The record is an 85-nucleotide sequence from Alcaligenaceae bacterium 429, which matches "SucA RNA motif" in Rfam. Pairs were carried over by alignment from the consensus structure, which is taken from published work. It is annotated as a cis-regulatory element. The literature on the family includes a 2007 paper in Nucleic Acids Res by Weinberg et al., "Identification of 22 candidate structured RNAs in bacteria using the CMfinder comparative genomics pipeline".

Nucleotides: 085
Base pairs, nucleotide, nucleotide: 002085003084004083007036008035009034010033011032016026017025018024019023039048040047041046050081051080053078058072059071060070061069062068063067
Number, partner (000 for none) and nucleotide at each position: 001000c002085u003084g004083c005000u006000a007036u008035c009034c010033g011032c012000u013000a014000u015000a016026c017025g018024g019023c020000g021000u022000g023019g024018c025017c026016g027000u028000g029000a030000u031000c032011g033010c034009g035008g036007a037000a038000g039048g040047u041046a042000u043000u044000c045000c046041u047040g048039c049000a050081u051080c052000u053078c054000a055000u056000u057000a058072c059071g060070a061069g062068u063067g064000a065000a066000a067063c068062a069061c070060u071059c072058g073000g074000a075000c076000a077000g078053g079000u080051g081050a082000a083004g084003c085002a